[Rfam]
c-di-GMP-I riboswitch aptamer: a 122-nucleotide sequence from Candidatus Jettenia caeni. The base pairs follow the family's consensus structure, which is taken from published work. The match comes from Rfam's covariance-model search (55 bits).
RNA sequence: AAACGACAAAGGCAAACCCUGAGUGAUCAGGGGACGCAAAGUAAAGGAUCUUUAAUCAUACUGGUAGAGGCGUAUCAUGAUACGCCUCUACCAGUAUGAUUAAAGAUAGCCCUACCACCGAA
Numbered sequence: 001a002a003a004c005g006a007c008a009a010a011g012g013c014a015a016a017c018c019c020u021g022a023g024u025g026a027u028c029a030g031g032g033g034a035c036g037c038a039a040a041g042u043a044a045a046g047g048a049u050c051u052u053u054a055a056u057c058a059u060a061c062u063g064g065u066a067g068a069g070g071c072g073u074a075u076c077a078u079g080a081u082a083c084g085c086c087u088c089u090a091c092c093a094g095u096a097u098g099a100u101u102a103a104a105g106a107u108a109g110c111c112c113u114a115c116c117a118c119c120g121a122a
Stems, first nucleotide, its partner, number of pairs: 012037002017032006041115003046111002048107003055101001